[Rfam]
RNA: Glycine riboswitch aptamer
Organism: Dermacoccus sp. 147Ba
RNA sequence: UCGAAUCCGGUGGGAGAGACUCCGGCCGCGAGCCGGGGCGCCGAAGGGGCAAGCCUCCCCGCAACCUCUCAGGCGAAGUGGACCAUCGGGUGAAG
Numbered sequence: 001u002c003g004a005a006u007c008c009g010g011u012g013g014g015a016g017a018g019a020c021u022c023c024g025g026c027c028g029c030g031a032g033c034c035g036g037g038g039c040g041c042c043g044a045a046g047g048g049g050c051a052a053g054c055c056u057c058c059c060c061g062c063a064a065c066c067u068c069u070c071a072g073g074c075g076a077a078g079u080g081g082a083c084c085a086u087c088g089g090g091u092g093a094a095g
Base pairs, nucleotide, nucleotide: 006090007089008088009087010086011085012084013083020038021037022036023035024034025033040074041073042072043070044069047068048067049066053062054061